Background
The record is a 72-nucleotide sequence from Nocardia wallacei, which matches "ASpks TB sRNA" in Rfam. The source organism's lineage runs through Bacteria, Actinomycetota, Actinomycetes, Mycobacteriales and Nocardia. It scores 59 bits against the family's covariance model.
RNA sequence: CUUGAGGGAGCCGAUGCGCAACGGGCCGUUCGUCCGGUCCUGUCCGUAAGCGGCGAGCAAUGCCUGCGCCUC
Number, nucleotide and partner (000 for none) at each position: 001c000002u000003u000004g000005a000006g000007g000008g000009a000010g000011c000012c000013g000014a000015u025016g000017c023018g000019c000020a000021a000022c000023g017024g000025g015026c000027c000028g000029u000030u000031c068032g067033u066034c000035c062036g061037g000038u000039c000040c057041u056042g000043u000044c053045c052046g051047u000048a000049a000050g000051c046052g045053g044054c000055g000056a041057g040058c000059a000060a000061u036062g035063c000064c000065u000066g033067c032068g031069c000070c000071u000072c000